This 118-nucleotide RNA from Bacillus mycoides belongs to the Rfam family "Group II catalytic intron D1-D4-2". The organism belongs to Bacillus mycoides, within Bacteria. Rfam 15.1 lists 1,231 matches to the family in 625 species. On this family, see Chu et al., EMBO J 2001: "Control of branch-site choice by a group II intron". Rfam describes the family as follows. Group II introns are found in rRNA, tRNA and mRNA of organelles in fungi, plants and protists, and also in mRNA in bacteria. Rfam links the family to the GO term Group II intron splicing. The sequence is in the family's curated seed alignment.
RNA sequence: GAGGGAAGGCCCCUCGAAAUCGGUAUUCAGGUACAGGUUUCAAACCACCUUUGGGUGCUGCAAUCAAAAGUUGUGGUACUGAGCGCAAAUGGAAAAGGCUAACAGAGAUUAGUCAGGU
Numbered sequence: 001g002a003g004g005g006a007a008g009g010c011c012c013c014u015c016g017a018a019a020u021c022g023g024u025a026u027u028c029a030g031g032u033a034c035a036g037g038u039u040u041c042a043a044a045c046c047a048c049c050u051u052u053g054g055g056u057g058c059u060g061c062a063a064u065c066a067a068a069a070g071u072u073g074u075g076g077u078a079c080u081g082a083g084c085g086c087a088a089a090u091g092g093a094a095a096a097g098g099c100u101a102a103c104a105g106a107g108a109u110u111a112g113u114c115a116g117g118u
Stems, first nucleotide, its partner, number of pairs: 001015005016041006023034004046117001048092002050089004054080002057077003061073004097114006